[Rfam]
RNA sequence: UUGAUAUACAGUGAUGGGGUUCACUUAUUUAUUCGUUAUAAACGUAAUGACUCCUACUCAGAU
Numbered sequence: 001u002u003g004a005u006a007u008a009c010a011g012u013g014a015u016g017g018g019g020u021u022c023a024c025u026u027a028u029u030u031a032u033u034c035g036u037u038a039u040a041a042a043c044g045u046a047a048u049g050a051c052u053c054c055u056a057c058u059c060a061g062a063u
Stems, first nucleotide, its partner, number of pairs: 010025004016054006